The family of this 167-nucleotide RNA sequence from Mycoplasma sp. OR1901 is "Lysine riboswitch aptamer".
About the family: Riboswitches are metabolite binding domains within certain messenger RNAs that serve as precision sensors for their corresponding targets.
Gene Ontology term of the family: lysine biosynthetic process.
NCBI's taxonomy places the organism under Bacteria, Bacillati, Mycoplasmatota, Mycoplasmatales, Mycoplasma.
RNA sequence: UGUGUCUAUAGAGGUGCUGUUAAUAUUAGUAAUUAAUUGAGUUGGUAGACUGUGAAAUUAAUGAAAGGGUUCAACAGCCGAAGUUUAAGUAAUGACAAUUACUUUUGCUGGUAGAAAAGCAUAAAAGAUUUCUACUCUUUGGUUUAACCAUUGGCGCUAUAGAUAUA
Numbered sequence: 001u002g003u004g005u006c007u008a009u010a011g012a013g014g015u016g017c018u019g020u021u022a023a024u025a026u027u028a029g030u031a032a033u034u035a036a037u038u039g040a041g042u043u044g045g046u047a048g049a050c051u052g053u054g055a056a057a058u059u060a061a062u063g064a065a066a067g068g069g070u071u072c073a074a075c076a077g078c079c080g081a082a083g084u085u086u087a088a089g090u091a092a093u094g095a096c097a098a099u100u101a102c103u104u105u106u107g108c109u110g111g112u113a114g115a116a117a118a119g120c121a122u123a124a125a126a127g128a129u130u131u132c133u134a135c136u137c138u139u140u141g142g143u144u145u146a147a148c149c150a151u152u153g154g155c156g157c158u159a160u161a162g163a164u165a166u167a
Stems, first nucleotide, its partner, number of pairs: 006162006016078006022071003032062007082109003087104007110136007118129001120127001
Dot-bracket structure: .....((((((....(((((((((.......(((((((.................)))))))......))).))))))...(((..(((((((....)))))))..)))(((((((.(.(......).))))))))....................)))))).....